Shown here is a 76-nucleotide RNA from Flavobacterium succinicans, a member of the family "Flavo-1 RNA".
Rfam classes the family as a small RNA.
The source organism's lineage runs through Bacteria, Flavobacteriia, Flavobacteriales, Flavobacteriaceae and Flavobacterium.
A search with the family's covariance model found it, with a score of 66 bits.
RNA sequence: GCCUAGCCCUGAUGGAAGCGGCAUCCUGUGGCUCCGGGGUUCGGAGCCACAGAUAUAGCGUACAGCAGGAAAUAGC
Numbered sequence: 001g002c003c004u005a006g007c008c009c010u011g012a013u014g015g016a017a018g019c020g021g022c023a024u025c026c027u028g029u030g031g032c033u034c035c036g037g038g039g040u041u042c043g044g045a046g047c048c049a050c051a052g053a054u055a056u057a058g059c060g061u062a063c064a065g066c067a068g069g070a071a072a073u074a075g076c
Stems, first nucleotide, its partner, number of pairs: 009068003013064002018059002023054003028050008